Rfam assigns this 90-nucleotide RNA from Solanum commersonii to the family "Small nucleolar RNA R44/J54/Z268 family". Rfam links the family to the GO terms nucleolus and RNA processing. By type it is a C/D-box small nucleolar RNA. The base pairs follow the family's consensus structure, which was predicted with PFOLD. The match comes from Rfam's covariance-model search (88 bits).
RNA sequence: UUUGCAAGUGAUGAUAAAACAGACAGGGACAUCAGAACUCUUUUAUAGGGUAAAAGAUGACUAGUCUAAUGGGAAUCUCUCUGAUGCAAU
Numbered sequence: 001u002u003u004g005c006a007a008g009u010g011a012u013g014a015u016a017a018a019a020c021a022g023a024c025a026g027g028g029a030c031a032u033c034a035g036a037a038c039u040c041u042u043u044u045a046u047a048g049g050g051u052a053a054a055a056g057a058u059g060a061c062u063a064g065u066c067u068a069a070u071g072g073g074a075a076u077c078u079c080u081c082u083g084a085u086g087c088a089a090u
Stems, first nucleotide, its partner, number of pairs: 002089005
Dot-bracket structure: .(((((..............................................................................))))).